S10-Clostridia ribosomal protein leader: a 79-nucleotide sequence from Clostridium cellulovorans.
NCBI's taxonomy places the organism under Bacteria, Clostridia, Eubacteriales, Clostridiaceae, Clostridium cellulovorans.
On this family, see Eckert and Weinberg, BMC Microbiol 2020: "Discovery of 20 novel ribosomal leader candidates in bacteria and archaea".
[Rfam]
RNA sequence: AAAUGGCGAUGAAGCAAGAGGUGGCCUGACUUUAGGGAGAUUCUUGCGGAGUAUGUCUUGGUCUUGAACCAGGCGGCGG
Numbered sequence: 001a002a003a004u005g006g007c008g009a010u011g012a013a014g015c016a017a018g019a020g021g022u023g024g025c026c027u028g029a030c031u032u033u034a035g036g037g038a039g040a041u042u043c044u045u046g047c048g049g050a051g052u053a054u055g056u057c058u059u060g061g062u063c064u065u066g067a068a069c070c071a072g073g074c075g076g077c078g079g
Base pairs, nucleotide, nucleotide: 014047015046016045018043019042020041025036026035027034028033054078055077056076057075061074062073063072064071